The family of this 53-nucleotide sequence is "chrB-b RNA". The family's consensus secondary structure is taken from published work. Rfam's curators put it in the seed alignment. By type it is a cis-regulatory element.

RNA sequence: GCCGGGUAACGCAGGCUCCGGCGUCUCAAAGACGGUCUCCGUCCAAGUCCUGC
Numbered sequence: 001g002c003c004g005g006g007u008a009a010c011g012c013a014g015g016c017u018c019c020g021g022c023g024u025c026u027c028a029a030a031g032a033c034g035g036u037c038u039c040c041g042u043c044c045a046a047g048u049c050c051u052g053c
Stems, first nucleotide, its partner, number of pairs: 001022006011053005031043005